[Rfam]
RNA sequence: CUGCAUCUAUUGGACAGACCUGAGGCAGUUACUGUCUGCUGCUACAGUUUUCACAUAGAUGCAAGAAAAAAGGGUCCUCAUGCUUUCUGUGAGGUUGUGGCAGCCAAGAUUGAAGGGGAGAAUACAGAA
Numbered sequence: 001c002u003g004c005a006u007c008u009a010u011u012g013g014a015c016a017g018a019c020c021u022g023a024g025g026c027a028g029u030u031a032c033u034g035u036c037u038g039c040u041g042c043u044a045c046a047g048u049u050u051u052c053a054c055a056u057a058g059a060u061g062c063a064a065g066a067a068a069a070a071a072g073g074g075u076c077c078u079c080a081u082g083c084u085u086u087c088u089g090u091g092a093g094g095u096u097g098u099g100g101c102a103g104c105c106a107a108g109a110u111u112g113a114a115g116g117g118g119a120g121a122a123u124a125c126a127g128a129a
Stems, first nucleotide, its partner, number of pairs: 002063007011053002016050004024040005075121002078118002083112001086109003091101001
Small nucleolar RNA SNORA31: a 129-nucleotide RNA from Puma concolor. For this family Rfam cites "RNomics: an experimental approach that identifies 201 candidates for novel, small, non-messenger RNAs in mouse" (Huttenhofer et al., EMBO J, 2001). Rfam classes the family as an H/ACA-box small nucleolar RNA. ACA31 (SNORA31) belongs to the H/ACA class of snoRNAs which are thought to guide the sites of modification of uridines to pseudouridines.